Annotation:
The record is an 84-nucleotide RNA from Sulfitobacter albidus, which matches "Singlet oxygen resistance RNA X" in Rfam. The family's RNA type in Rfam is small RNA.
RNA sequence: GUCACGCACAGGGAUUGAGGCUGUUUUGUCUCGCCCUGUACCUCCCUGUUGGACUUGGCCGGGCCAUUGUGCCCGGUCUUUUUU
Numbered sequence: 001g002u003c004a005c006g007c008a009c010a011g012g013g014a015u016u017g018a019g020g021c022u023g024u025u026u027u028g029u030c031u032c033g034c035c036c037u038g039u040a041c042c043u044c045c046c047u048g049u050u051g052g053a054c055u056u057g058g059c060c061g062g063g064c065c066a067u068u069g070u071g072c073c074c075g076g077u078c079u080u081u082u083u084u
Stems, first nucleotide, its partner, number of pairs: 008039006057078008
The base pairs follow the family's consensus structure.
The organism belongs to Sulfitobacter, within Bacteria.
It scores 54 bits against the family's covariance model.